Rfam assigns this 75-nucleotide sequence from Leptobrachium leishanense to the family "mir-10 microRNA precursor family".
Its family is annotated with miRNA-mediated post-transcriptional gene silencing and RISC complex in the Gene Ontology.
NCBI's taxonomy places the organism under Eukaryota, Euteleostomi, Sarcopterygii, Tetrapoda, Leptobrachium.
The match comes from Rfam's covariance-model search (73 bits).
[Rfam]
RNA sequence: CUAUAUGUACCCUGUAGAACCGAAUUUGUGUGAUCUUUAUAAAGUCACAGAUUCGAUUCUAGGGGAAUAUGUAGU
Numbered sequence: 001c002u003a004u005a006u007g008u009a010c011c012c013u014g015u016a017g018a019a020c021c022g023a024a025u026u027u028g029u030g031u032g033a034u035c036u037u038u039a040u041a042a043a044g045u046c047a048c049a050g051a052u053u054c055g056a057u058u059c060u061a062g063g064g065g066a067a068u069a070u071g072u073a074g075u
Stems, first nucleotide, its partner, number of pairs: 002073006010065003016060004021055010